[Rfam]
RNA sequence: GCUGAUAUAGUGUAGUCGGUCAAUCAUGUAGGACUCUCACUCCUACGACUGGGGUUCAAAUCCCCAUAUCAGCA
Number, nucleotide and partner (000 for none) at each position: 001g073002c072003u071004g070005a069006u068007a067008u000009a000010g027011u026012g025013u000014a000015g000016u000017c000018g000019g000020u000021c000022a000023a000024u000025c012026a011027u010028g000029u045030a044031g043032g042033a041034c000035u000036c000037u000038c000039a000040c000041u033042c032043c031044u030045a029046c000047g000048a000049c000050u066051g065052g064053g063054g062055u000056u000057c000058a000059a000060a000061u000062c054063c053064c052065c051066a050067u007068a006069u005070c004071a003072g002073c001074a000

Shown here is a 74-nucleotide RNA from Methanocalculus chunghsingensis, a member of the family "tRNA". Rfam's curators write: Transfer RNA (tRNA) molecules are approximately 80 nucleotides in length. The match comes from Rfam's covariance-model search (66 bits).